[Rfam]
RNA sequence: UGCGUUGAUGAUGUAAUUUGCGUCCGACUCUAUGACCAGUGACAGUAUGCCUGCUGUCAUAUGCUGGCAUAGAUGGGUGAUGAACAUAAAGAAUCUGAGCA
Numbered sequence: 001u002g003c004g005u006u007g008a009u010g011a012u013g014u015a016a017u018u019u020g021c022g023u024c025c026g027a028c029u030c031u032a033u034g035a036c037c038a039g040u041g042a043c044a045g046u047a048u049g050c051c052u053g054c055u056g057u058c059a060u061a062u063g064c065u066g067g068c069a070u071a072g073a074u075g076g077g078u079g080a081u082g083a084a085c086a087u088a089a090a091g092a093a094u095c096u097g098a099g100c101a
Stems, first nucleotide, its partner, number of pairs: 001101003021082004030072005039064002041058005
The family of this 101-nucleotide RNA sequence from Channa argus is "Small nucleolar RNA SNORD16". By type it is a C/D-box small nucleolar RNA. Taxonomically the source falls in Channa (Eukaryota, Opisthokonta, Ctenosquamata, Euacanthomorphacea). Gene Ontology terms of the family: nucleolus and RNA processing. Its Rfam clan is "SNORD16 clan".